[Rfam]
RNA sequence: AGUUGAAUAGCGCUGAAUUUUCGUUAGGAAAAGCGGGGGAACCAACACUUUGGCAUCAUGCCAAUGGGGUGAAUCGUAUUGUUUACGUAGGGCUAUCCCACAGUCCGAAUCCGACAGCUAACCUCGUAAGCUUGGGUGGUUACAUGA
Numbered sequence: 001a002g003u004u005g006a007a008u009a010g011c012g013c014u015g016a017a018u019u020u021u022c023g024u025u026a027g028g029a030a031a032a033g034c035g036g037g038g039g040a041a042c043c044a045a046c047a048c049u050u051u052g053g054c055a056u057c058a059u060g061c062c063a064a065u066g067g068g069g070u071g072a073a074u075c076g077u078a079u080u081g082u083u084u085a086c087g088u089a090g091g092g093c094u095a096u097c098c099c100a101c102a103g104u105c106c107g108a109a110u111c112c113g114a115c116a117g118c119u120a121a122c123c124u125c126g127u128a129a130g131c132u133u134g135g136g137u138g139g140u141u142a143c144a145u146g147a
Base pairs, nucleotide, nucleotide: 012131013130014129018032019031020030021029022028033127034126035125036124037123038122043066044065067112068111069110075087076086077085078084090106091105092104093103